The record is a 265-nucleotide RNA from Caldisalinibacter kiritimatiensis, which matches "Bacterial large signal recognition particle RNA" in Rfam. The family is grouped with related families in Rfam's "SRP clan". A reference for the family is Regalia et al. (2002), "Prediction of signal recognition particle RNA genes", Nucleic Acids Res. The family's consensus secondary structure is taken from published work. Gene Ontology terms of the family: SRP-dependent cotranslational protein targeting to membrane, signal sequence recognition and signal recognition particle, plasma membrane targeting.
[Rfam]
Nucleotides: 265
Base pairs, nucleotide, nucleotide: 001265002264003263004262005261006260009058010057011056012030013029014028015027017025019023035055036054037053038052039051064258065257066256067255068254069253073249074248075247077245079243080242081241082240083239084238085237086236087235088234092230093229096227097226098225099224100223101222104220105219106217107216108215115211116210117209118208119207120206121205122204123200124199125198126197127196128195129191130190132189133188134187135186136185137182139180140179141178142177148173149172150171151170156165157164158163
Number, partner (000 for none) and nucleotide at each position: 001265u002264c003263g004262u005261g006260c007000u008000a009058g010057a011056c012030g013029g014028g015027g016000a017025g018000g019023u020000g021000g022000c023019g024000g025017u026000g027015c028014c029013c030012u031000g032000u033000a034000a035055c036054c037053u038052g039051c040000a041000a042000u043000c044000c045000g046000c047000c048000a049000u050000a051039g052038c053037a054036g055035g056011g057010u058009u059000g060000a061000a062000u063000u064258c065257c066256u067255a068254g069253c070000c071000c072000a073249g074248g075247c076000u077245u078000a079243u080242u081241a082240c083239u084238g085237u086236a087235a088234g089000g090000u091000c092230u093229g094000c095000c096227c097226u098225a099224g100223a101222u102000a103000a104220g105219u106217g107216g108215c109000g110000u111000c112000g113000a114000c115211g116210a117209c118208u119207u120206g121205g122204u123200c124199c125198c126197g127196c128195g129191c130190a131000a132189c133188g134187g135186g136185a137182a138000c139180c140179c141178a142177u143000g144000a145000a146000c147000c148173c149172c150171g151170u152000c153000a154000g155000g156165u157164c158163c159000g160000g161000a162000a163158g164157g165156a166000a167000g168000c169000a170151g171150c172149g173148g174000u175000a176000a177142g178141u179140g180139g181000a182137u183000c184000c185136u186135c187134u188133c189132g190130u191129g192000u193000g194000c195128c196127g197126u198125g199124g200123g201000g202000g203000u204122g205121c206120c207119g208118g209117g210116u211115c212000u213000g214000a215108g216107u217106u218000a219105a220104c221000u222101g223100u224099c225098u226097a227096g228000g229093u230092a231000a232000c233000g234088c235087u236086u237085g238084u239083a240082g241081u242080a243079a244000u245077a246000u247075g248074u249073c250000a251000a252000a253069g254068c255067u256066a257065g258064g259000u260006g261005c262004a263003c264002g265001a
Rfam classes the family as a non-coding RNA gene.